About this RNA
Shown here is a 109-nucleotide sequence from Cucurbita maxima, a member of the family "MIR162_1 microRNA precursor family". Clan: MIR167 microRNA precursor clan. The family's consensus secondary structure was predicted with RNAalifold. A search with the family's covariance model found it, with a score of 100 bits.
Nucleotides: 109
Base pairs, nucleotide, nucleotide: 013097014096015095018092019091020090022088023087024086025085027083028082029081030080031079032078033077036074037073038072
Number, partner (000 for none) and nucleotide at each position: 001000g002000g003000u004000g005000g006000a007000g008000u009000c010000a011000g012000u013097g014096g015095a016000a017000g018092c019091a020090g021000c022088g023087g024086u025085u026000c027083a028082u029081c030080g031079a032078c033077c034000u035000c036074u037073u038072c039000u040000u041000g042000g043000g044000a045000u046000u047000u048000g049000u050000a051000a052000u053000g054000a055000a056000u057000c058000g059000a060000a061000c062000g063000c064000a065000a066000a067000a068000a069000c070000a071000c072038g073037a074036a075000c076000c077033g078032g079031u080030c081029g082028a083027u084000a085025a086024a087023c088022c089000u090020c091019u092018g093000c094000a095015u096014c097013c098000a099000g100000c101000g102000c103000u104000c105000u106000c107000u108000c109000u